[Rfam]
RNA sequence: CCUGCCGAAGUUUCCCUCAGGAUAGCAGAAACUCAUUGAACAGUUUUAUGAGGUAAAGCGAAUGAUUAGAGGACUUAGGGAUGAAACAUCCUUAACCUAUUCUCAAACUUUAAAUAUGUAAGACGUCCAUGUUGCUUAAUUGAACGUGGACUAUCGAAUGAGAGUUUCUAGUGGGCCAUUUUUGGUAAGCAGAACUGGCGAUGCGGGAUGAACCGAACGUGAGGUUAAGGUGCCGGAAUACACGCUCAUUUAGACACCACAAAAGGUGUUAGUUCAUCUAGACAGCAGGACGGUGGCCAUGGAAGUCGGAAUCCGCUAAGGAGUGUGUAACAACUCACCUGCCGAAUGAACUAGCCCUGAAAAUGGAUGGCGCUCAAGCGUGUUACCCAUACCUCACCGUCAAGGUUAAAGCGAAGCCUUGACGAGUAGGCAGGCGUGGAGGUUGUGAAGAAGCUUCGGGAGUGAUCCCAAGUCGAACGGCCUCUAGUGCAGAU
Dot-bracket structure: ((((((....(.(((....))).)..(((((((..........(((((((.....(((....(((..(.(((..((((((.(.....).))))))))).)..)))..)).).....))))))).(((((((((.........)))))))))...........))))))).....((((.(((((.....))))).))))....(((......)))...(((((.(...(((......(.(..(((..................(((.((((((((((.......(((((.(((...((.........))...)))(...)(...((......)).).)))))...)))))))))))))...................)))..)))))...).)))))(((((((((.........)))))))))....))))))(.((((((((((......((....(((....)))...))...))))))))))..).....
Numbered sequence: 001c002c003u004g005c006c007g008a009a010g011u012u013u014c015c016c017u018c019a020g021g022a023u024a025g026c027a028g029a030a031a032c033u034c035a036u037u038g039a040a041c042a043g044u045u046u047u048a049u050g051a052g053g054u055a056a057a058g059c060g061a062a063u064g065a066u067u068a069g070a071g072g073a074c075u076u077a078g079g080g081a082u083g084a085a086a087c088a089u090c091c092u093u094a095a096c097c098u099a100u101u102c103u104c105a106a107a108c109u110u111u112a113a114a115u116a117u118g119u120a121a122g123a124c125g126u127c128c129a130u131g132u133u134g135c136u137u138a139a140u141u142g143a144a145c146g147u148g149g150a151c152u153a154u155c156g157a158a159u160g161a162g163a164g165u166u167u168c169u170a171g172u173g174g175g176c177c178a179u180u181u182u183u184g185g186u187a188a189g190c191a192g193a194a195c196u197g198g199c200g201a202u203g204c205g206g207g208a209u210g211a212a213c214c215g216a217a218c219g220u221g222a223g224g225u226u227a228a229g230g231u232g233c234c235g236g237a238a239u240a241c242a243c244g245c246u247c248a249u250u251u252a253g254a255c256a257c258c259a260c261a262a263a264a265g266g267u268g269u270u271a272g273u274u275c276a277u278c279u280a281g282a283c284a285g286c287a288g289g290a291c292g293g294u295g296g297c298c299a300u301g302g303a304a305g306u307c308g309g310a311a312u313c314c315g316c317u318a319a320g321g322a323g324u325g326u327g328u329a330a331c332a333a334c335u336c337a338c339c340u341g342c343c344g345a346a347u348g349a350a351c352u353a354g355c356c357c358u359g360a361a362a363a364u365g366g367a368u369g370g371c372g373c374u375c376a377a378g379c380g381u382g383u384u385a386c387c388c389a390u391a392c393c394u395c396a397c398c399g400u401c402a403a404g405g406u407u408a409a410a411g412c413g414a415a416g417c418c419u420u421g422a423c424g425a426g427u428a429g430g431c432a433g434g435c436g437u438g439g440a441g442g443u444u445g446u447g448a449a450g451a452a453g454c455u456u457c458g459g460g461a462g463u464g465a466u467c468c469c470a471a472g473u474c475g476a477a478c479g480g481c482c483u484c485u486a487g488u489g490c491a492g493a494u
Stems, first nucleotide, its partner, number of pairs: 001434006011024001013022003027169007044123007056111001057109002063105003068100001070098003075095006082088001125151009175199004180194005204215003219397005225391001229387003238384001240383001243380003264358003268355010285342005291315003297309002316320001321336001325334002398424009435489001437486010453473002459468003
Rfam assigns this 494-nucleotide part of an RNA from Basidiobolus meristosporus to the family "Eukaryotic large subunit ribosomal RNA".
A search with the family's covariance model found it, with a score of 3310 bits.
Its family is annotated with structural constituent of ribosome and ribosome in the Gene Ontology.
The family's consensus secondary structure is taken from published work.